RNA sequence: GAUCCGCAGCCGGGCGGAUUAUUUGACACACGCGGUUGGCCACGACUUAUUACCAACUGCACCCGAGUUCAGCGGUGGUGUCAGCGGCGGCUCGCCAGAGCAGAGGUCUCUACCUCCAUGCCGCAUUCGUACUGACC
Number, nucleotide and partner (000 for none) at each position: 001g020002a019003u018004c017005c016006g015007c014008a000009g000010c000011c000012g000013g000014g007015c006016g005017g004018a003019u002020u001021a000022u000023u000024u083025g082026a081027c080028a079029c078030a000031c077032g060033c059034g058035g057036u056037u055038g054039g053040c000041c000042a000043c000044g000045a000046c000047u000048u000049a000050u000051u000052a000053c039054c038055a037056a036057c035058u034059g033060c032061a000062c000063c075064c074065g073066a000067g000068u000069u000070c000071a000072g000073c065074g064075g063076u000077g031078g029079u028080g027081u026082c025083a024084g124085c123086g122087g121088c120089g000090g101091c100092u099093c098094g000095c000096c000097a000098g093099a092100g091101c090102a000103g116104a000105g114106g113107u112108c000109u000110c000111u000112a107113c106114c105115u000116c103117c000118a000119u000120g088121c087122c086123g085124c084125a000126u000127u000128c000129g000130u000131a000132c000133u000134g000135a000136c000137c000
Notes:
This 137-nucleotide RNA belongs to the Rfam family "xerDC RNA". Rfam classes the family as a cis-regulatory element.